RNA sequence: AUCCAAGCUGAUUCCCUCUCCGGUGGCCUGAUCAAGCCCCUCAGUUCAGGAAAGUAGCAACUUGGAAGAAAAUCAGGCAUGCCUGAGGUUGCUGGGGGAGAGGGCAUGUCUGUUUCCUUUGCCUUCCUUUGGCUGCCUACACUC
Numbered sequence: 001a002u003c004c005a006a007g008c009u010g011a012u013u014c015c016c017u018c019u020c021c022g023g024u025g026g027c028c029u030g031a032u033c034a035a036g037c038c039c040c041u042c043a044g045u046u047c048a049g050g051a052a053a054g055u056a057g058c059a060a061c062u063u064g065g066a067a068g069a070a071a072a073u074c075a076g077g078c079a080u081g082c083c084u085g086a087g088g089u090u091g092c093u094g095g096g097g098g099a100g101a102g103g104g105c106a107u108g109u110c111u112g113u114u115u116c117c118u119u120u121g122c123c124u125u126c127c128u129u130u131g132g133c134u135g136c137c138u139a140c141a142c143u144c
Stems, first nucleotide, its partner, number of pairs: 002066006009059002019051003022042002025039002028036001077134001080132001085127001087125001094117001096115003

The record is a 144-nucleotide RNA sequence from Neogale vison, which matches "Small nucleolar RNA SNORA67" in Rfam. The match comes from Rfam's covariance-model search (119 bits). Rfam links the family to the GO terms nucleolus and RNA processing. About the family: U67 belongs to the H/ACA class of snoRNAs which are thought to guide the sites of modification of uridines to pseudouridines. The base pairs follow the family's consensus structure, which was predicted with RNAalifold. Lineage of the source: Eukaryota > Euteleostomi > Dipnotetrapodomorpha > Boreoeutheria > Neogale. Rfam 15.1 lists 580 matches to the family in 130 species.